This 77-nucleotide RNA from Fukomys damarensis belongs to the Rfam family "mir-147 microRNA precursor family". Gene Ontology terms of the family: miRNA-mediated post-transcriptional gene silencing and RISC complex. The literature on the family includes a 2008 paper in BMC Genomics by Kawaji et al., "Hidden layers of human small RNAs".
RNA sequence: UAUGAAUCUAGUGGAAACGUUUCCAUACAGACUGGAAUCUGUGCCCAGUGUGCGGAAGCGCUUCUGCUGCAUUUUUA
Numbered sequence: 001u002a003u004g005a006a007u008c009u010a011g012u013g014g015a016a017a018c019g020u021u022u023c024c025a026u027a028c029a030g031a032c033u034g035g036a037a038u039c040u041g042u043g044c045c046c047a048g049u050g051u052g053c054g055g056a057a058g059c060g061c062u063u064c065u066g067c068u069g070c071a072u073u074u075u076u077a
Stems, first nucleotide, its partner, number of pairs: 001077002004074004009069008018060007026052004032048002